[Rfam]
Background:
This 121-nucleotide sequence from Triticum aestivum belongs to the Rfam family "Small nucleolar RNA SNORD14". Rfam links the family to the GO terms RNA processing and nucleolus. It is annotated as a C/D-box small nucleolar RNA.
RNA sequence: UGGCGAUGACGAUAAUACUUAGGCUUGUUUCUCAAAACAUUCGCAGUUGCCGCCUAAAAGUUUUCGCCCCGCCAGGCUUGAGAUCUAAUGCUGCUAGUUCCUUCCUUGGAUGUCUGAGCCA
Numbered sequence: 001u002g003g004c005g006a007u008g009a010c011g012a013u014a015a016u017a018c019u020u021a022g023g024c025u026u027g028u029u030u031c032u033c034a035a036a037a038c039a040u041u042c043g044c045a046g047u048u049g050c051c052g053c054c055u056a057a058a059a060g061u062u063u064u065c066g067c068c069c070c071g072c073c074a075g076g077c078u079u080g081a082g083a084u085c086u087a088a089u090g091c092u093g094c095u096a097g098u099u100c101c102u103u104c105c106u107u108g109g110a111u112g113u114c115u116g117a118g119c120c121a
Base pairs, nucleotide, nucleotide: 001121002120003119004118060085062083063082064081065080
Dot-bracket structure: ((((.......................................................(.((((..............)))).)................................))))

A search with the family's covariance model found it, with a score of 87 bits. Rfam 15.1 lists 4,559 matches to the family in 936 species.